[Rfam]
RNA sequence: UGGUAACAAGAACCGGUGCUAAAGGGUCCCUGCCCUGACAGCACCUGUCAGUAGCCGUUGGGUAGGCUCCUUUAGCACCGGCCCAUGUUACAAA
Numbered sequence: 001u002g003g004u005a006a007c008a009a010g011a012a013c014c015g016g017u018g019c020u021a022a023a024g025g026g027u028c029c030c031u032g033c034c035c036u037g038a039c040a041g042c043a044c045c046u047g048u049c050a051g052u053a054g055c056c057g058u059u060g061g062g063u064a065g066g067c068u069c070c071u072u073u074a075g076c077a078c079c080g081g082c083c084c085a086u087g088u089u090a091c092a093a094a
Base pairs, nucleotide, nucleotide: 003091004090005089006088007087008086010084013081014080015079016078017077018076019075020074021073022072023071024070025069026068029066030065034061035060038058039057045051046050